[Rfam]
RNA sequence: UAGGCGGACAGCAAGUUAUGUGACGUACAAUCCGGAUAUGAAAAGACUAUGACUUAUAUGCUGCCAGCUAUGGCAGGUGCUAACGUGCUUUACGGCUCAG
Numbered sequence: 001u002a003g004g005c006g007g008a009c010a011g012c013a014a015g016u017u018a019u020g021u022g023a024c025g026u027a028c029a030a031u032c033c034g035g036a037u038a039u040g041a042a043a044a045g046a047c048u049a050u051g052a053c054u055u056a057u058a059u060g061c062u063g064c065c066a067g068c069u070a071u072g073g074c075a076g077g078u079g080c081u082a083a084c085g086u087g088c089u090u091u092a093c094g095g096c097u098c099a100g
Stems, first nucleotide, its partner, number of pairs: 003012001025032001034061001077098001079096002
Shown here is a 100-nucleotide RNA sequence from Acetohalobium arabaticum, a member of the family "Pyrrolysine insertion sequence mttB". Rfam links the family to the GO term pyrrolysine incorporation. Rfam classes the family as a cis-regulatory element. It is one of the family's seed sequences.